[Rfam]
RNA sequence: UCGGCUCCGGUUCACGGUCCCCAUCGGGGGAGCGACCCGGCGCC
Numbered sequence: 001u002c003g004g005c006u007c008c009g010g011u012u013c014a015c016g017g018u019c020c021c022c023a024u025c026g027g028g029g030g031a032g033c034g035a036c037c038c039g040g041c042g043c044c
Base pairs, nucleotide, nucleotide: 003044004043005042007040008039009038010037015034016033018031019030020029021028022027

L31-Actinobacteria ribosomal protein leader: a 44-nucleotide RNA. Rfam's curators put it in the seed alignment. Rfam classes the family as a cis-regulatory leader.